[Rfam]
RNA sequence: AUAAUGGAUGGUAUAGAAAUCAAUGUUGUUACAUUUUACACUUCAUUUUCUUUGUCUGUCAUUUUCCUCUACACCUCUCUUUUAUCAGAGAAAAUAAGGGAGAGAAAUAAAGUGGAUUUCUCUUUUUUAUUUUUCAACCAAAGGGAGUUGUAGGGGAAAAUCUUAGAAAUUGACGUGU
Numbered sequence: 001a002u003a004a005u006g007g008a009u010g011g012u013a014u015a016g017a018a019a020u021c022a023a024u025g026u027u028g029u030u031a032c033a034u035u036u037u038a039c040a041c042u043u044c045a046u047u048u049u050c051u052u053u054g055u056c057u058g059u060c061a062u063u064u065u066c067c068u069c070u071a072c073a074c075c076u077c078u079c080u081u082u083u084a085u086c087a088g089a090g091a092a093a094a095u096a097a098g099g100g101a102g103a104g105a106a107a108u109a110a111a112g113u114g115g116a117u118u119u120c121u122c123u124u125u126u127u128u129a130u131u132u133u134u135c136a137a138c139c140a141a142a143g144g145g146a147g148u149u150g151u152a153g154g155g156g157a158a159a160a161u162c163u164u165a166g167a168a169a170u171u172g173a174c175g176u177g178u
Stems, first nucleotide, its partner, number of pairs: 064158010075147008085137001088135006096124007